[Rfam]
RNA sequence: GCGGUAACUAGGUCGACGGGCCGAACGACGGAAUCCCUACCGUUUGUUACCGCAAUAUUUUUAUUAGGG
Numbered sequence: 001g002c003g004g005u006a007a008c009u010a011g012g013u014c015g016a017c018g019g020g021c022c023g024a025a026c027g028a029c030g031g032a033a034u035c036c037c038u039a040c041c042g043u044u045u046g047u048u049a050c051c052g053c054a055a056u057a058u059u060u061u062u063a064u065u066a067g068g069g
Base pairs, nucleotide, nucleotide: 001053002052003051004050005049006048007047008046011022012021013020014019028043029042030041031040035069036068037067038066039065
RNA: int-alpA RNA
Organism: Neobacillus mesonae